[Rfam]
This 92-nucleotide sequence from Oscillibacter hominis belongs to the Rfam family "c-di-GMP-I riboswitch aptamer".
It scores 64 bits against the family's covariance model.
The base pairs follow the family's consensus structure, which is taken from published work.
RNA sequence: UAUCUGAAACGGCAAACCGCCCGAAAGAGCGGGACGCAAAGUUUGGAGGCUAAAGCCCGCCAUCCGGGGGCCAUGCCUGUCCGGCCGCCACA
Numbered sequence: 001u002a003u004c005u006g007a008a009a010c011g012g013c014a015a016a017c018c019g020c021c022c023g024a025a026a027g028a029g030c031g032g033g034a035c036g037c038a039a040a041g042u043u044u045g046g047a048g049g050c051u052a053a054a055g056c057c058c059g060c061c062a063u064c065c066g067g068g069g070g071c072c073a074u075g076c077c078u079g080u081c082c083g084g085c086c087g088c089c090a091c092a
Stems, first nucleotide, its partner, number of pairs: 012037002017032004022027001041085003045082003048077003055071004
Dot-bracket structure: ...........((...((((.(....).))))...))...(((.((((((....((((.........))))...)))..)))))).......